This 748-nucleotide sequence from Tetrapisispora phaffii belongs to the Rfam family "Yeast U1 spliceosomal RNA".
It scores 126 bits against the family's covariance model.
For this family Rfam cites "The uRNA database" (Zwieb, Nucleic Acids Res, 1997).
From the family's description: U1 is a small nuclear RNA (snRNA) component of the spliceosome (involved in pre-mRNA splicing).
The source organism's lineage runs through Eukaryota, Ascomycota, Saccharomycetes, Saccharomycetaceae and Tetrapisispora phaffii.

RNA sequence: AUACUUACCUUAAGAUGUCAGGGGAGAUCAAGAAGUCCUACUGAUGAUACAUAUGUUUUCAAUUAUUCUUUCCUCUUUUCAUGUUUUUAUUUCGAUAAAAGAUGAGAAUGAAGAAUUAGAAGGAUGCAAGCCAUUUAAUAUGACAGUUAGAAUUCAGUAGUGUAAUUUAUUAUGCUACUGAGUUUCUGCUGUUGUUGUAAUUGAUGGUAGCUCCUUAGUCAACUUACACAAACUGUUGCGAAAAAUGUGUAUUCCGACGAUUCGUUUUCUUGUUUAAUCAGGAAUCAUAAUAUUUUGCUUUUUUUUCAUGUGUUUUGCUAUGCAUGGAAAGAAUAUAGUCGAAUAUUAUGUCUUGAUUGAGCCCUUUUUUCUUCUGCCUGGAGAAGUAUGGCACUGACUAAUAUCAGUGUUAGGAAAGUUGGAUUUGAUUGAGAUUGAAUAUUCAAUUGCUUGUUUGAUGCAUAUGUUACUUUAUAGUUUAAUUAUGCUGUUCUCUCGGGAAGUUCUUUGAUUGGGUUUUGAUUGAUUCAUUUACAUUAGUAAUAUUCUUCGGAGUACAUUAAAGUAGAGAGAAGGUUGAAUCAUUUCUUGAUCAAUUAAUUGGCAUUAUUAGAUUAUAUUCUAAAUAUGUUCUUAGCCAUUUAUUUGACGAUGAACGAUGUUGACUAACCAAGCUAUUCCUAUAUUCUAUUAUAUCUUAAUCAAAUUUGAUAGAAUCGGGUGGGUCUUAUAAUUUUUGAUUUAUUUU
Numbered sequence: 001a002u003a004c005u006u007a008c009c010u011u012a013a014g015a016u017g018u019c020a021g022g023g024g025a026g027a028u029c030a031a032g033a034a035g036u037c038c039u040a041c042u043g044a045u046g047a048u049a050c051a052u053a054u055g056u057u058u059u060c061a062a063u064u065a066u067u068c069u070u071u072c073c074u075c076u077u078u079u080c081a082u083g084u085u086u087u088u089a090u091u092u093c094g095a096u097a098a099a100a101g102a103u104g105a106g107a108a109u110g111a112a113g114a115a116u117u118a119g120a121a122g123g124a125u126g127c128a129a130g131c132c133a134u135u136u137a138a139u140a141u142g143a144c145a146g147u148u149a150g151a152a153u154u155c156a157g158u159a160g161u162g163u164a165a166u167u168u169a170u171u172a173u174g175c176u177a178c179u180g181a182g183u184u185u186c187u188g189c190u191g192u193u194g195u196u197g198u199a200a201u202u203g204a205u206g207g208u209a210g211c212u213c214c215u216u217a218g219u220c221a222a223c224u225u226a227c228a229c230a231a232a233c234u235g236u237u238g239c240g241a242a243a244a245a246u247g248u249g250u251a252u253u254c255c256g257a258c259g260a261u262u263c264g265u266u267u268u269c270u271u272g273u274u275u276a277a278u279c280a281g282g283a284a285u286c287a288u289a290a291u292a293u294u295u296u297g298c299u300u301u302u303u304u305u306u307c308a309u310g311u312g313u314u315u316u317g318c319u320a321u322g323c324a325u326g327g328a329a330a331g332a333a334u335a336u337a338g339u340c341g342a343a344u345a346u347u348a349u350g351u352c353u354u355g356a357u358u359g360a361g362c363c364c365u366u367u368u369u370u371c372u373u374c375u376g377c378c379u380g381g382a383g384a385a386g387u388a389u390g391g392c393a394c395u396g397a398c399u400a401a402u403a404u405c406a407g408u409g410u411u412a413g414g415a416a417a418g419u420u421g422g423a424u425u426u427g428a429u430u431g432a433g434a435u436u437g438a439a440u441a442u443u444c445a446a447u448u449g450c451u452u453g454u455u456u457g458a459u460g461c462a463u464a465u466g467u468u469a470c471u472u473u474a475u476a477g478u479u480u481a482a483u484u485a486u487g488c489u490g491u492u493c494u495c496u497c498g499g500g501a502a503g504u505u506c507u508u509u510g511a512u513u514g515g516g517u518u519u520u521g522a523u524u525g526a527u528u529c530a531u532u533u534a535c536a537u538u539a540g541u542a543a544u545a546u547u548c549u550u551c552g553g554a555g556u557a558c559a560u561u562a563a564a565g566u567a568g569a570g571a572g573a574a575g576g577u578u579g580a581a582u583c584a585u586u587u588c589u590u591g592a593u594c595a596a597u598u599a600a601u602u603g604g605c606a607u608u609a610u611u612a613g614a615u616u617a618u619a620u621u622c623u624a625a626a627u628a629u630g631u632u633c634u635u636a637g638c639c640a641u642u643u644a645u646u647u648g649a650c651g652a653u654g655a656a657c658g659a660u661g662u663u664g665a666c667u668a669a670c671c672a673a674g675c676u677a678u679u680c681c682u683a684u685a686u687u688c689u690a691u692u693a694u695a696u697c698u699u700a701a702u703c704a705a706a707u708u709u710g711a712u713a714g715a716a717u718c719g720g721g722u723g724g725g726u727c728u729u730a731u732a733a734u735u736u737u738u739g740a741u742u743u744a745u746u747u748u
Stems, first nucleotide, its partner, number of pairs: 010733003013728003017045005022039004046253009056244005075235001076232003258719006266417006272362007281352002284349002290336007371386005391410007